[Rfam]
RNA sequence: GACUGUCACUAGGGGAGCCUUACGGCUGAGACUGGAUCGCAUGAUCCUAGACCCUCCGAACCUGAUCUGGUUAGAACCAGCGUAGGGAAGUGGAAGAAGAACGGU
Numbered sequence: 001g002a003c004u005g006u007c008a009c010u011a012g013g014g015g016a017g018c019c020u021u022a023c024g025g026c027u028g029a030g031a032c033u034g035g036a037u038c039g040c041a042u043g044a045u046c047c048u049a050g051a052c053c054c055u056c057c058g059a060a061c062c063u064g065a066u067c068u069g070g071u072u073a074g075a076a077c078c079a080g081c082g083u084a085g086g087g088a089a090g091u092g093g094a095a096g097a098a099g100a101a102c103g104g105u
Stems, first nucleotide, its partner, number of pairs: 006093005011055004017026003034047004061086004067080004
Shown here is a 105-nucleotide RNA from Paenibacillus contaminans, a member of the family "TPP riboswitch aptamer (THI element)". The match comes from Rfam's covariance-model search (74 bits). Taxonomically the source falls in Paenibacillus (Bacteria, Bacillati, Bacilli, Paenibacillaceae).